[Rfam]
RNA sequence: UGUGCCGGGGUGGGCAGGCCCUGUGGUCAACUAACCCUAAUGGCGGCCGCGCCCCUGACGCUCGCCCGCUGUUUUACUCGCUGACUUUCAGCGGGCAAAGGGAGCGGCCCAGGGAAAGGGGGGAGGGAGCGGCCCAGGGAAAGAGUUCCGUUCUCAAAAAAAGCCAGCGAUGGGGAUCCACACCCCGGUCCACCCUGGGGUCCCUGUGCCUUCUCCGUAACCAGGGAUGCUCCCGCCUUCGCCCCUCGUGGAGGCCGCGGUCGGCAGGCUCAGCGCCGCUGUCGCCGCGAAGAGUUCGUCUCUGUCAGCCUUGGCGGAGGCCGGGAACGGAGGGCCGGCCCGCCCCCCCUGGGCAGCGAGGGGACCUCAGCAGAACAAACGGGUGCGGCGCCGCGGGGCGCUGAGCAGCCGCAGCUCCCUAAGACGUGGAGUGCGCGGCCGGCGCUGCCCCGACACCC
Number, nucleotide and partner (000 for none) at each position: 001u000002g000003u000004g000005c188006c187007g186008g185009g184010g183011u182012g181013g000014g179015c000016a000017g178018g177019c175020c174021c173022u172023g000024u000025g000026g000027u000028c000029a000030a000031c000032u000033a000034a000035c000036c000037c000038u000039a000040a000041u000042g000043g000044c000045g000046g000047c000048c000049g000050c000051g105052c104053c000054c102055c101056u000057g000058a000059c000060g000061c000062u000063c000064g096065c095066c094067c093068g092069c091070u090071g089072u000073u000074u000075u000076a000077c000078u000079c000080g168081c167082u166083g165084a000085c163086u161087u160088u159089c071090a070091g069092c068093g067094g066095g065096c064097a000098a000099a000100g000101g055102g054103a000104g052105c051106g000107g000108c000109c000110c000111a000112g000113g000114g000115a000116a000117a000118g000119g000120g000121g000122g000123g000124a000125g000126g000127g000128a000129g000130c000131g000132g000133c000134c000135c000136a000137g000138g000139g000140a000141a000142a000143g000144a000145g000146u000147u000148c000149c000150g000151u000152u000153c000154u000155c000156a000157a000158a000159a088160a087161a086162a000163g085164c000165c083166a082167g081168c080169g000170a000171u000172g022173g021174g020175g019176a000177u018178c017179c014180a000181c012182a011183c010184c009185c008186c007187g006188g005189u000190c000191c000192a000193c000194c000195c370196u369197g368198g367199g366200g365201u364202c000203c000204c000205u000206g000207u000208g000209c000210c000211u000212u000213c000214u334215c333216c332217g000218u000219a000220a000221c000222c000223a000224g000225g000226g000227a000228u000229g000230c000231u326232c325233c324234c323235g322236c000237c320238u000239u000240c316241g315242c314243c313244c000245c000246u000247c000248g000249u000250g000251g000252a000253g000254g000255c000256c289257g288258c287259g286260g285261u000262c284263g283264g282265c281266a000267g277268g276269c275270u000271c000272a000273g000274c000275g269276c268277c267278g000279c000280u000281g265282u264283c263284g262285c260286c259287g258288c257289g256290a000291a303292g302293a301294g300295u000296u000297c000298g000299u000300c294301u293302c292303u291304g000305u000306c000307a000308g000309c000310c000311u000312u000313g243314g242315c241316g240317g000318a000319g000320g237321c000322c235323g234324g233325g232326a231327a000328c000329g000330g000331a000332g216333g215334g214335c000336c000337g000338g000339c000340c000341c000342g000343c000344c000345c000346c000347c000348c000349c000350u000351g000352g000353g000354c000355a000356g000357c000358g000359a000360g000361g000362g000363g000364a201365c200366c199367u198368c197369a196370g195371c000372a000373g000374a000375a000376c000377a000378a000379a000380c000381g000382g000383g450384u000385g448386c447387g446388g445389c444390g443391c442392c441393g000394c000395g000396g000397g000398g000399c000400g000401c000402u000403g000404a000405g000406c000407a000408g000409c438410c437411g436412c435413a000414g000415c000416u431417c000418c429419c428420u000421a000422a000423g000424a000425c000426g000427u000428g419429g418430a000431g416432u000433g000434c000435g412436c411437g410438g409439c000440c000441g392442g391443c390444g389445c388446u387447g386448c385449c000450c383451c000452g000453a000454c000455a000456c000457c000458c000

Shown here is a 458-nucleotide sequence from Tichodroma muraria, a member of the family "Vertebrate telomerase RNA".
On this family, see Fragnet et al., J Biol Chem 2005: "Comparative functional study of the viral telomerase RNA based on natural mutations".
Gene Ontology terms of the family: telomerase activity, telomerase catalytic core complex and telomere maintenance via telomerase.
It scores 143 bits against the family's covariance model.
Telomerase is a ribonucleoprotein reverse transcriptase that synthesises telomeric DNA. Telomerase RNAs differ greatly in sequence and structure between vertebrates, ciliates and yeasts, but they share a 5' pseudoknot structure close to the template sequence. Vertebrate telomerase RNAs have a 3' H/ACA snoRNA-like domain.